[Rfam]
RNA sequence: GGUAUUUGAGGUGGUAAAAUUCGUAGCGACCACACGCCGCCGGUAACGACAGGAACUUCGGUUCUGAGAGAUGCAGGAGAAUGCUACGCCUGCCAAAUACC
Numbered sequence: 001g002g003u004a005u006u007u008g009a010g011g012u013g014g015u016a017a018a019a020u021u022c023g024u025a026g027c028g029a030c031c032a033c034a035c036g037c038c039g040c041c042g043g044u045a046a047c048g049a050c051a052g053g054a055a056c057u058u059c060g061g062u063u064c065u066g067a068g069a070g071a072u073g074c075a076g077g078a079g080a081a082u083g084c085u086a087c088g089c090c091u092g093c094c095a096a097a098u099a100c101c
Stems, first nucleotide, its partner, number of pairs: 001101008011033005023087005035068001036062004073093005